Small nucleolar RNA SNORA77: a 113-nucleotide RNA sequence from Nomascus leucogenys.

RNA sequence: GCAGACUCCCUCAGCAUCCAGCGGGUGCUUUUUAGGUCUGCCAGGGAGCAUUCCAGGGGUGCUGUGACCAUUUUGACCUCUCUAGGGUGAUGCAGCUGCCUGGGGACACAGAG
Numbered sequence: 001g002c003a004g005a006c007u008c009c010c011u012c013a014g015c016a017u018c019c020a021g022c023g024g025g026u027g028c029u030u031u032u033u034a035g036g037u038c039u040g041c042c043a044g045g046g047a048g049c050a051u052u053c054c055a056g057g058g059g060u061g062c063u064g065u066g067a068c069c070a071u072u073u074u075g076a077c078c079u080c081u082c083u084a085g086g087g088u089g090a091u092g093c094a095g096c097u098g099c100c101u102g103g104g105g106a107c108a109c110a111g112a113g
Stems, first nucleotide, its partner, number of pairs: 001041006014028006052104006061096006069089005
Record summary: Rfam's curators write: ACA63 (SNORA77) is a member of the H/ACA class of snoRNAs that guide the sites of modification of uridines to pseudouridines. The family's consensus secondary structure was predicted with RNAalifold. Rfam 15.1 lists 843 matches to the family in 607 species. A reference for the family is Schattner et al. (2006), "A computational screen for mammalian pseudouridylation guide H/ACA RNAs", RNA.